Bacterial small subunit ribosomal RNA: a 594-nucleotide part of an RNA from Kosmotoga olearia. Its Rfam clan is "SSU clan".
RNA sequence: UGACGGGGGCCCGCACAAGCGGUGGAGCGUGUGGUUUAAUUCGAUGCUAAGCGAAGGACCUUACCAGGGCUUGACAUGCUGGUGGUACUGAACCGAAAGGGGAAGGACCCACCGUUAGGUGGGAGCCAGCACAGGUGGUGCACGGCCGUCGUCAGCUCGUGCCGUGAGGUGUUGGGUUAAGUCCCGCAACGAGCGCAACCCCUGCCCCUAGUUGCCAGCGGUUAGGCCGGGCACUCUAGGGGGACCGCCGCCGACGAGGCGGAGGAAGGGGGGGAUGACGUCAGGUAUCGUGCCCCUUAUGUCCUGGGCGACACACGCGCUACAAUGGGACGGACAGCGGGGAGCGAGGCAGCGAUGCUGAGCAAAUCCCUGAAACCGUUCCUCAGUUCGGAUUGCAGGCUGCAACCCGCCUGCAUGAAGCCGGAAUCGCUAGUAAUCGCGGAUCAGCCAUGCCGCGGUGAAUACGUUCCCGGGCCUUGUACACACCGCCCGUCAAGCCACCCGAGUUGGCAACACCUGAAGACGGGUGUCCCAACCGAAAGGAGGGAGCCCGUUUAAGGUGGGGCUGGCGAGGGGGGCUAAGUCGUAACAAGG
Numbered sequence: 001u002g003a004c005g006g007g008g009g010c011c012c013g014c015a016c017a018a019g020c021g022g023u024g025g026a027g028c029g030u031g032u033g034g035u036u037u038a039a040u041u042c043g044a045u046g047c048u049a050a051g052c053g054a055a056g057g058a059c060c061u062u063a064c065c066a067g068g069g070c071u072u073g074a075c076a077u078g079c080u081g082g083u084g085g086u087a088c089u090g091a092a093c094c095g096a097a098a099g100g101g102g103a104a105g106g107a108c109c110c111a112c113c114g115u116u117a118g119g120u121g122g123g124a125g126c127c128a129g130c131a132c133a134g135g136u137g138g139u140g141c142a143c144g145g146c147c148g149u150c151g152u153c154a155g156c157u158c159g160u161g162c163c164g165u166g167a168g169g170u171g172u173u174g175g176g177u178u179a180a181g182u183c184c185c186g187c188a189a190c191g192a193g194c195g196c197a198a199c200c201c202c203u204g205c206c207c208c209u210a211g212u213u214g215c216c217a218g219c220g221g222u223u224a225g226g227c228c229g230g231g232c233a234c235u236c237u238a239g240g241g242g243g244a245c246c247g248c249c250g251c252c253g254a255c256g257a258g259g260c261g262g263a264g265g266a267a268g269g270g271g272g273g274g275a276u277g278a279c280g281u282c283a284g285g286u287a288u289c290g291u292g293c294c295c296c297u298u299a300u301g302u303c304c305u306g307g308g309c310g311a312c313a314c315a316c317g318c319g320c321u322a323c324a325a326u327g328g329g330a331c332g333g334a335c336a337g338c339g340g341g342g343a344g345c346g347a348g349g350c351a352g353c354g355a356u357g358c359u360g361a362g363c364a365a366a367u368c369c370c371u372g373a374a375a376c377c378g379u380u381c382c383u384c385a386g387u388u389c390g391g392a393u394u395g396c397a398g399g400c401u402g403c404a405a406c407c408c409g410c411c412u413g414c415a416u417g418a419a420g421c422c423g424g425a426a427u428c429g430c431u432a433g434u435a436a437u438c439g440c441g442g443a444u445c446a447g448c449c450a451u452g453c454c455g456c457g458g459u460g461a462a463u464a465c466g467u468u469c470c471c472g473g474g475c476c477u478u479g480u481a482c483a484c485a486c487c488g489c490c491c492g493u494c495a496a497g498c499c500a501c502c503c504g505a506g507u508u509g510g511c512a513a514c515a516c517c518u519g520a521a522g523a524c525g526g527g528u529g530u531c532c533c534a535a536c537c538g539a540a541a542g543g544a545g546g547g548a549g550c551c552c553g554u555u556u557a558a559g560g561u562g563g564g565g566c567u568g569g570c571g572a573g574g575g576g577g578g579c580u581a582a583g584u585c586g587u588a589a590c591a592a593g594g
Stems, first nucleotide, its partner, number of pairs: 001483002003480003007477007015467002019430005024323001026321008034312002040055004064307007077131007088105002093100002108123006134296002137294004143290002145286003148282001150280002155194006161170003173186004200274004205242007215231002219229003245265002248262005327382007339370003344363002349358003389420001394415007436459007486593001488590001491586002496580004501575003506570006514562004522555006530548004536543002
Lineage of the source: Bacteria > Kosmotogales > Kosmotogaceae > Kosmotoga > Kosmotoga olearia.